[Rfam]
Shown here is a 109-nucleotide sequence from Prolemur simus, a member of the family "Y RNA". The literature on the family includes a 1995 paper in RNA by Van Horn et al., "Caenorhabditis elegans embryos contain only one major species of Ro RNP".

RNA sequence: GACUGGUCCAAAGGUAUUGAGUUAUCUCACUUGAUUGUUCACAGUCACAGAUUGAACUCCUUGUUCUACUCUUUCCCUUCUUCUCACUAUUGCACUUGACUAGUCUUAA
Numbered sequence: 001g002a003c004u005g006g007u008c009c010a011a012a013g014g015u016a017u018u019g020a021g022u023u024a025u026c027u028c029a030c031u032u033g034a035u036u037g038u039u040c041a042c043a044g045u046c047a048c049a050g051a052u053u054g055a056a057c058u059c060c061u062u063g064u065u066c067u068a069c070u071c072u073u074u075c076c077c078u079u080c081u082u083c084u085c086a087c088u089a090u091u092g093c094a095c096u097u098g099a100c101u102a103g104u105c106u107u108a109a
Base pairs, nucleotide, nucleotide: 001105002104003103004102005101006100007099008098010097011096014093015092016088018086019085020084021083043067044066
The match comes from Rfam's covariance-model search (59 bits). Lineage of the source: Eukaryota > Sarcopterygii > Primates > Lemuriformes > Prolemur.